[Rfam]
RNA: Small nucleolar RNA SNORA57
RNA sequence: CCUCCAGUUAUUGGCACGCAUGCAGUAGCUUGUUCCUCCUGCGUGUGAUGUACGGAGGGAUAGGAAAUGCAAACUCCAGCGUUGUGUCUGCAGAGCCGGCAGCUCCCGUCUGCUGGUCCCAUCCUCAAUCGCUGGCACAUAC
Number, nucleotide and partner (000 for none) at each position: 001c058002c057003u056004c055005c054006a000007g000008u000009u000010a000011u000012u000013g000014g000015c045016a044017c043018g042019c041020a040021u000022g038023c000024a037025g036026u000027a000028g000029c000030u000031u000032g000033u000034u000035c000036c025037u024038c022039c000040u020041g019042c018043g017044u016045g015046u000047g000048a000049u000050g000051u000052a000053c000054g005055g004056a003057g002058g001059g000060a000061u000062a000063g000064g000065a000066a000067a000068u000069g000070c000071a000072a000073a000074c000075u000076c000077c134078a133079g132080c131081g130082u000083u000084g000085u000086g000087u000088c000089u000090g000091c000092a000093g000094a000095g000096c116097c115098g114099g113100c112101a111102g110103c000104u000105c000106c000107c000108g000109u000110c102111u101112g100113c099114u098115g097116g096117u000118c000119c000120c000121a000122u000123c000124c000125u000126c000127a000128a000129u000130c081131g080132c079133u078134g077135g000136c000137a000138c000139a000140u000141a000142c000